[Rfam]
RNA sequence: ACUGGAGGACUAGUCAGACUGAGUCUGGGGAGUGAGACUCAGGUGACAGUAAUCUCCUAGAAGAAAAGGGAUGGAGAGAGCAGUCCUGCUCAGAGAAAAGCAAGGGGCCUACUGUGCCAUCCGACACAA
Dot-bracket structure: .(((((((........(.(.((((((........)))))).).)........))))).)).......(((........((..(((((................)))))...))......))).......
Annotation: The family of this 129-nucleotide RNA from Alectura lathami is "Small Cajal body specific RNA 4". The family has 24 seed sequences and 634 matches in Rfam 15.1. It is annotated as a small Cajal body RNA. Its family is annotated with Cajal body, nucleolus and RNA processing in the Gene Ontology. The match comes from Rfam's covariance-model search (80 bits). Pairs were carried over by alignment from the consensus structure, which was predicted with RNAfold. scaRNAs are a specific class of small nuclear RNAs which localise to the Cajal bodies and guide the modification of RNA polymerase II transcribed spliceosomal RNAs U1, U2, U4, U5 and U12. ACA26 belongs to the H/ACA box class of guide RNAs as it has the predicted hairpin-hinge-hairpin-tail structure, conserved H/ACA-box motifs and is found associated with GAR1.